[Rfam]
RNA sequence: GCCGAGCUCAGCAGCGCGAGCUUGUAACCCGAGCGGGGGCAUUGGGUGAUGUGGACGUUGCUGUAUAGCUCUGGGCCUGGGCCGAGAGUGCUCUUGCUGGCCCGCCCGUUCCGAGUUGGUAGUGGACCGCUGGGGCUUGUGCGGAAGCCGGGCCUCACGUUCCCUAGAGUGGCAGGCACAGCGUUAGGCUGGCUUUACAGAGCAGCGACAACUGCCCUCUACCAACGGUGGAAGGUCAACGGGCCGCUGCACCCUUGGCCCCCAUAUCAGGCUCCCAGUCUACUACAACGGACCAUCACCUUU
Numbered sequence: 001g002c003c004g005a006g007c008u009c010a011g012c013a014g015c016g017c018g019a020g021c022u023u024g025u026a027a028c029c030c031g032a033g034c035g036g037g038g039g040c041a042u043u044g045g046g047u048g049a050u051g052u053g054g055a056c057g058u059u060g061c062u063g064u065a066u067a068g069c070u071c072u073g074g075g076c077c078u079g080g081g082c083c084g085a086g087a088g089u090g091c092u093c094u095u096g097c098u099g100g101c102c103c104g105c106c107c108g109u110u111c112c113g114a115g116u117u118g119g120u121a122g123u124g125g126a127c128c129g130c131u132g133g134g135g136c137u138u139g140u141g142c143g144g145a146a147g148c149c150g151g152g153c154c155u156c157a158c159g160u161u162c163c164c165u166a167g168a169g170u171g172g173c174a175g176g177c178a179c180a181g182c183g184u185u186a187g188g189c190u191g192g193c194u195u196u197a198c199a200g201a202g203c204a205g206c207g208a209c210a211a212c213u214g215c216c217c218u219c220u221a222c223c224a225a226c227g228g229u230g231g232a233a234g235g236u237c238a239a240c241g242g243g244c245c246g247c248u249g250c251a252c253c254c255u256u257g258g259c260c261c262c263c264a265u266a267u268c269a270g271g272c273u274c275c276c277a278g279u280c281u282a283c284u285a286c287a288a289c290g291g292a293c294c295a296u297c298a299c300c301u302u303u
Stems, first nucleotide, its partner, number of pairs: 001040003004023006028037003044301008053293001056290005063283003067279001069278002073274006079261008088252003092249001098246007106235002109233005115226008124163003128159002131157009141148002164169001171216005182207003189200003
A member of the RNA family "Plant signal recognition particle RNA" from Miscanthus lutarioriparius, 303 nucleotides long.
On this family, see Wild et al., Curr Opin Struct Biol 2002: "Towards the structure of the mammalian signal recognition particle".
The source organism's lineage runs through Eukaryota, Tracheophyta, Mesangiospermae, Petrosaviidae and Miscanthus.
The match comes from Rfam's covariance-model search (209 bits).